Annotation: The family of this 59-nucleotide RNA sequence from Acipenser ruthenus is "Selenocysteine insertion sequence 1". The family's consensus secondary structure is taken from published work. NCBI's taxonomy places the organism under Eukaryota, Opisthokonta, Craniata, Actinopteri, Acipenser. A search with the family's covariance model found it, with a score of 39 bits.
RNA sequence: CUGUAUUAAUGACAGUCUGUGUAUAAACCACUGUGGGGAUACAGACUUGAUACUUACAG
Numbered sequence: 001c002u003g004u005a006u007u008a009a010u011g012a013c014a015g016u017c018u019g020u021g022u023a024u025a026a027a028c029c030a031c032u033g034u035g036g037g038g039a040u041a042c043a044g045a046c047u048u049g050a051u052a053c054u055u056a057c058a059g
Stems, first nucleotide, its partner, number of pairs: 001059004014047009028036003